[Rfam]
RNA sequence: AUGCAUUUAGCAGGAUUUGAAUCUACAAAUUUGCCAAUUAUGAGUUGGGUGCUUUAACCAUUCAGCUAUGGAUAC
Numbered sequence: 001a002u003g004c005a006u007u008u009a010g011c012a013g014g015a016u017u018u019g020a021a022u023c024u025a026c027a028a029a030u031u032u033g034c035c036a037a038u039u040a041u042g043a044g045u046u047g048g049g050u051g052c053u054u055u056a057a058c059c060a061u062u063c064a065g066c067u068a069u070g071g072a073u074a075c
Stems, first nucleotide, its partner, number of pairs: 003075001005073004010026001012024003040069003044066008
Record summary:
The record is a 75-nucleotide RNA from Vanilla planifolia, which matches "Plastid-ycf2 5UTR RNA" in Rfam. The literature on the family includes a 2023 paper in Plant Commun by Richter et al., "Retrograde signaling in plants: A critical review focusing on the GUN pathway and beyond". Taxonomically the source falls in Vanilla (Eukaryota, Petrosaviidae, Orchidaceae, Vanilloideae). It is annotated as a cis-regulatory element. The family's consensus secondary structure was predicted with LocARNA.